[Rfam]
RNA sequence: AGAUGAGAGAUACACCCCGCCCGCAGGGGACUGCGGGCGGAGCCAGGUUGGGGCCUCCCCAGCUUCGACCUGGUCGUGCCCUCGCGCACACAACCGGAGCCUCCGGCUUCGGAUCUCCACACCGAUCGGA
Numbered sequence: 001a002g003a004u005g006a007g008a009g010a011u012a013c014a015c016c017c018c019g020c021c022c023g024c025a026g027g028g029g030a031c032u033g034c035g036g037g038c039g040g041a042g043c044c045a046g047g048u049u050g051g052g053g054c055c056u057c058c059c060c061a062g063c064u065u066c067g068a069c070c071u072g073g074u075c076g077u078g079c080c081c082u083c084g085c086g087c088a089c090a091c092a093a094c095c096g097g098a099g100c101c102u103c104c105g106g107c108u109u110c111g112g113a114u115c116u117c118c119a120c121a122c123c124g125a126u127c128g129g130a
Stems, first nucleotide, its partner, number of pairs: 004121002007118001009117002017040010042074006049067006076089004094112008122129002
Record summary: The family of this 130-nucleotide RNA sequence from Streptomyces phaeofaciens is "Streptomyces RNA 5676". On this family, see Vockenhuber et al., RNA Biol 2011: "Deep sequencing-based identification of small non-coding RNAs in Streptomyces coelicolor". A search with the family's covariance model found it, with a score of 137 bits. From the family's description: Identified by deep sequencing of transcriptome at the end of exponential growth phase. Appears longer on northern blot than sequencing transcript.